The family of this 115-nucleotide sequence from Fenollaria massiliensis is "FMN riboswitch aptamer (RFN element)".

RNA sequence: CUAAUACUUUGGGGUAAGGUGAAAUUCCUUUUAACCGGCGGUAAAGCCCGCGAGCAUUUGCAGAACCUGUGAGAUUCAGGUGCCGACUGUAUAGUCAGGACGGAAAAAGAUCUUA
Numbered sequence: 001c002u003a004a005u006a007c008u009u010u011g012g013g014g015u016a017a018g019g020u021g022a023a024a025u026u027c028c029u030u031u032u033a034a035c036c037g038g039c040g041g042u043a044a045a046g047c048c049c050g051c052g053a054g055c056a057u058u059u060g061c062a063g064a065a066c067c068u069g070u071g072a073g074a075u076u077c078a079g080g081u082g083c084c085g086a087c088u089g090u091a092u093a094g095u096c097a098g099g100a101c102g103g104a105a106a107a108a109g110a111u112c113u114u115a
Base pairs, nucleotide, nucleotide: 003113007109008108009107010106017029018028019027034095035094036085037084038051039050040049041048046083047082054061055060065081066080067079068078069077087098088097089096

Rfam describes the family as follows. The RFN element is a highly conserved domain that is found frequently in the 5'-untranslated regions of prokaryotic mRNAs that encode for flavin mononucleotide (FMN) biosynthesis and transport proteins. Pairs were carried over by alignment from the consensus structure, which is taken from published work. Gene Ontology term of the family: FMN binding.